[Rfam]
RNA sequence: GCGUGGGUCGGCCCGCUGUACUGGAUCCAGUGGGCUGGGGGACACCGCCGCCUCCAUCCCCGCGGGCGGCGGAACGGUCCGGGAGGCGCGCCUCGUCUCCCGGACUACG
Numbered sequence: 001g002c003g004u005g006g007g008u009c010g011g012c013c014c015g016c017u018g019u020a021c022u023g024g025a026u027c028c029a030g031u032g033g034g035c036u037g038g039g040g041g042a043c044a045c046c047g048c049c050g051c052c053u054c055c056a057u058c059c060c061c062g063c064g065g066g067c068g069g070c071g072g073a074a075c076g077g078u079c080c081g082g083g084a085g086g087c088g089c090g091c092c093u094c095g096u097c098u099c100c101c102g103g104a105c106u107a108c109g
Stems, first nucleotide, its partner, number of pairs: 001108001006075001008073001009037010038043001045072009055062001076106013